[Rfam]
RNA sequence: CUGUGCUAGAUGGGGAGGUAGCGGUGCCCUGUAACCUGCAACCCGCUAUAGCAGGAUUGAACUCCUCACGUAGGCAUGUUGUAUGUAGGGCCGCCUUUAGUAAGUGGUGAUGAAAGUCGGGUCCUACGCAACGGAAGCUUACGAACCCCGUCAGGUCCGGAAGGAAGCAGCGGUAAGUAAUCACUUUCGUGUGCCGUAGGGUGGCCUAAUUUGAGCUAACUGCUAGAGUAACGCUUAUGGCAACCUGUCAAGGUGAGGUGCACAG
Numbered sequence: 001c002u003g004u005g006c007u008a009g010a011u012g013g014g015g016a017g018g019u020a021g022c023g024g025u026g027c028c029c030u031g032u033a034a035c036c037u038g039c040a041a042c043c044c045g046c047u048a049u050a051g052c053a054g055g056a057u058u059g060a061a062c063u064c065c066u067c068a069c070g071u072a073g074g075c076a077u078g079u080u081g082u083a084u085g086u087a088g089g090g091c092c093g094c095c096u097u098u099a100g101u102a103a104g105u106g107g108u109g110a111u112g113a114a115a116g117u118c119g120g121g122u123c124c125u126a127c128g129c130a131a132c133g134g135a136a137g138c139u140u141a142c143g144a145a146c147c148c149c150g151u152c153a154g155g156u157c158c159g160g161a162a163g164g165a166a167g168c169a170g171c172g173g174u175a176a177g178u179a180a181u182c183a184c185u186u187u188c189g190u191g192u193g194c195c196g197u198a199g200g201g202u203g204g205c206c207u208a209a210u211u212u213g214a215g216c217u218a219a220c221u222g223c224u225a226g227a228g229u230a231a232c233g234c235u236u237a238u239g240g241c242a243a244c245c246u247g248u249c250a251a252g253g254u255g256a257g258g259u260g261c262a263c264a265g
Stems, first nucleotide, its partner, number of pairs: 001265006009058003012030004017025001019023001035055005064258006073249004079243004084239006093229001096227006104220002106217003114212004119207004123200006129191002132189005137182001139180004148173004156165003
Description
The record is a 265-nucleotide RNA from Alkaliphilus serpentinus, which matches "Bacterial large signal recognition particle RNA" in Rfam. By type it is a non-coding RNA gene. The base pairs follow the family's consensus structure, which is taken from published work. It scores 206 bits against the family's covariance model.